[Rfam]
Nucleotides: 058
Base pairs, nucleotide, nucleotide: 001024002023003022004021005020006019007018009016028058029057030056032055033054034053035052036051037050038049
Number, partner (000 for none) and nucleotide at each position: 001024g002023c003022g004021g005020g006019a007018g008000c009016c010000g011000c012000u013000u014000g015000c016009g017000a018007c019006u020005c021004c022003c023002g024001c025000g026000g027000c028058c029057u030056g031000a032055c033054u034053c035052c036051g037050g038049u039000a040000c041000c042000u043000g044000a045000u046000a047000c048000g049038g050037c051036c052035g053034g054033g055032g056030c057029a058028g